The family of this 82-nucleotide RNA sequence from Candidatus Mycoplasma haematobovis is "tRNA". The family's RNA type in Rfam is transfer RNA. Clan: tRNA clan.
[Rfam]
RNA sequence: GCACUCGUGGCGGAACUGGCAGACGCGCUAGACUUAGGAUCUAGUAUCUUUUGAUGUGUGGGUUCGAUUCCCUCCGAGUGCA
Numbered sequence: 001g002c003a004c005u006c007g008u009g010g011c012g013g014a015a016c017u018g019g020c021a022g023a024c025g026c027g028c029u030a031g032a033c034u035u036a037g038g039a040u041c042u043a044g045u046a047u048c049u050u051u052u053g054a055u056g057u058g059u060g061g062g063u064u065c066g067a068u069u070c071c072c073u074c075c076g077a078g079u080g081c082a
Base pairs, nucleotide, nucleotide: 001081002080003079004078005077006076007075010026011025012024028044029043030042031041032040058074060072061071062070